[Rfam]
RNA sequence: UCUAGUCAGCAGCCGAAUCCCGUGGCAACACACGGGAGCGGGGGACCCAUCAGGGAGCGACGAGAGACGCUCCCCGGGGCGCAGGUGAGCCACUCACCGGGGUACGUUCAAGCCCUAGCCCGUCAGCUAACCUCGCAGGCCGGCGCGGAAUCGGUUU
Numbered sequence: 001u002c003u004a005g006u007c008a009g010c011a012g013c014c015g016a017a018u019c020c021c022g023u024g025g026c027a028a029c030a031c032a033c034g035g036g037a038g039c040g041g042g043g044g045a046c047c048c049a050u051c052a053g054g055g056a057g058c059g060a061c062g063a064g065a066g067a068c069g070c071u072c073c074c075c076g077g078g079g080c081g082c083a084g085g086u087g088a089g090c091c092a093c094u095c096a097c098c099g100g101g102g103u104a105c106g107u108u109c110a111a112g113c114c115c116u117a118g119c120c121c122g123u124c125a126g127c128u129a130a131c132c133u134c135g136c137a138g139g140c141c142g143g144c145g146c147g148g149a150a151u152c153g154g155u156u157u
Base pairs, nucleotide, nucleotide: 012140013139014138018037019036020035021034022033023032024031038136039135040134041133042132043131048076077121078120079119085097086096087095088094100115101114102113103112
RNA: c-di-AMP riboswitch aptamer (ydaO/yuaA leader)
Organism: Frigoriglobus tundricola